[Rfam]
RNA sequence: ACGGGCACUUGGCAGCCUUGUGAUGUAUUACAGAGAAGUCAUAGGGCAGCUCCCAAGGUCUGU
Numbered sequence: 001a002c003g004g005g006c007a008c009u010u011g012g013c014a015g016c017c018u019u020g021u022g023a024u025g026u027a028u029u030a031c032a033g034a035g036a037a038g039u040c041a042u043a044g045g046g047c048a049g050c051u052c053c054c055a056a057g058g059u060c061u062g063u
Base pairs, nucleotide, nucleotide: 001063002062003061004060005059006058009056012053015047016046017045018044019043020042021041022040023039024038025031026030
This 63-nucleotide RNA from Sphenodon punctatus belongs to the Rfam family "MAT2A 3'UTR stem loop B". Pairs were carried over by alignment from the consensus structure, which is taken from published work. NCBI's taxonomy places the organism under Eukaryota, Sarcopterygii, Dipnotetrapodomorpha, Lepidosauria, Sphenodon. It is annotated as a cis-regulatory element.